Shown here is a 99-nucleotide sequence from Aliidongia dinghuensis, a member of the family "Glycine riboswitch aptamer". This family represents the bacterial glycine riboswitch.
[Rfam]
RNA sequence: CUGAGCCUCGUGGGAGAGACGGGAGAGCCAGCAUCGCUCUGCCGCGCCGAAGGAGCAACCGCCCCGGAAACUCUCAGGCAAAAGGACCGCGAGGGGACG
Numbered sequence: 001c002u003g004a005g006c007c008u009c010g011u012g013g014g015a016g017a018g019a020c021g022g023g024a025g026a027g028c029c030a031g032c033a034u035c036g037c038u039c040u041g042c043c044g045c046g047c048c049g050a051a052g053g054a055g056c057a058a059c060c061g062c063c064c065c066g067g068a069a070a071c072u073c074u075c076a077g078g079c080a081a082a083a084g085g086a087c088c089g090c091g092a093g094g095g096g097a098c099g
Stems, first nucleotide, its partner, number of pairs: 006094008020044003046079003049075002053073003059067002
NCBI's taxonomy places the organism under Bacteria, Pseudomonadati, Pseudomonadota, Dongiaceae, Aliidongia.